[Rfam]
RNA sequence: CUGGGCUGCAGGACUUAGCUCACAAGUGAACAGUGAGAUUGCUGUCGUGUUCACAGUGGCUAAGUUCCGCACCUGUG
Number, nucleotide and partner (000 for none) at each position: 001c000002u000003g000004g000005g000006c000007u000008g000009c000010a000011g067012g066013a065014c064015u063016u062017a061018g060019c059020u058021c000022a000023c000024a000025a000026g054027u053028g052029a051030a050031c049032a048033g000034u000035g000036a000037g000038a000039u000040u000041g000042c000043u000044g000045u000046c000047g000048u032049g031050u030051u029052c028053a027054c026055a000056g000057u000058g020059g019060c018061u017062a016063a015064g014065u013066u012067c011068c000069g000070c000071a000072c000073c000074u000075g000076u000077g000

Record summary
mir-27 microRNA precursor family: a 77-nucleotide sequence from Microcaecilia unicolor. A search with the family's covariance model found it, with a score of 74 bits. The source organism's lineage runs through Eukaryota, Tetrapoda, Gymnophiona, Siphonopidae and Microcaecilia. Pairs were carried over by alignment from the consensus structure, which was predicted with RNAalifold. Rfam 15.1 lists 1,440 matches to the family in 645 species.